[Rfam]
RNA sequence: CCUCGCGGCCCUGUCUCCCAACCCUUGUACCAGUGCUGUGCCUCGGACCCUGGUACAGGUGUGGGGGGCAGGGACCGGGGA
Numbered sequence: 001c002c003u004c005g006c007g008g009c010c011c012u013g014u015c016u017c018c019c020a021a022c023c024c025u026u027g028u029a030c031c032a033g034u035g036c037u038g039u040g041c042c043u044c045g046g047a048c049c050c051u052g053g054u055a056c057a058g059g060u061g062u063g064g065g066g067g068g069c070a071g072g073g074a075c076c077g078g079g080g081a
Stems, first nucleotide, its partner, number of pairs: 010072003014068005022059002026057007
RNA: mir-150 microRNA precursor family